The record is a 296-nucleotide part of an RNA from Meloidogyne artiellia, which matches "Eukaryotic large subunit ribosomal RNA" in Rfam. Taxonomically the source falls in Meloidogyne (Eukaryota, Opisthokonta, Metazoa, Tylenchomorpha).
[Rfam]
RNA sequence: GAGUUUAUCGUGUGCGCGCAUUGGGUGGUGAAAACCCAAGGCGCAAUGAAAGUGAAUGCUCUCGCAAGAGCUAAUGUGCGACCCUUUGCCCCUCGCAGGGUGCAGCAUGGCCCCAUCCCUACUGCAUGCAGUGGGGUGGAGGAAGAGCGUGCCCUAGACCCGAAAGAUGGUGAACUAUUCCUCAGCAGGACGAAGCCAGAGGAAACUCUGGUGGAAGUCCGAAGCGGUUCUGAAAAAUCGAUCGUCUGACUUGGGUAUAGGGGCGAAAGACUAAUCGAACCAUCUAGUAGCUGGUU
Numbered sequence: 001g002a003g004u005u006u007a008u009c010g011u012g013u014g015c016g017c018g019c020a021u022u023g024g025g026u027g028g029u030g031a032a033a034a035c036c037c038a039a040g041g042c043g044c045a046a047u048g049a050a051a052g053u054g055a056a057u058g059c060u061c062u063c064g065c066a067a068g069a070g071c072u073a074a075u076g077u078g079c080g081a082c083c084c085u086u087u088g089c090c091c092c093u094c095g096c097a098g099g100g101u102g103c104a105g106c107a108u109g110g111c112c113c114c115a116u117c118c119c120u121a122c123u124g125c126a127u128g129c130a131g132u133g134g135g136g137u138g139g140a141g142g143a144a145g146a147g148c149g150u151g152c153c154c155u156a157g158a159c160c161c162g163a164a165a166g167a168u169g170g171u172g173a174a175c176u177a178u179u180c181c182u183c184a185g186c187a188g189g190a191c192g193a194a195g196c197c198a199g200a201g202g203a204a205a206c207u208c209u210g211g212u213g214g215a216a217g218u219c220c221g222a223a224g225c226g227g228u229u230c231u232g233a234a235a236a237a238u239c240g241a242u243c244g245u246c247u248g249a250c251u252u253g254g255g256u257a258u259a260g261g262g263g264c265g266a267a268a269g270a271c272u273a274a275u276c277g278a279a280c281c282a283u284c285u286a287g288u289a290g291c292u293g294g295u296u
Stems, first nucleotide, its partner, number of pairs: 005156001010154001012152006018042002023037004046053002075109005083100004111142002113139003116135003123128001159294002162291001166284006175260004180255003184251002186248001188220004195212007224245004229241002232239002262272002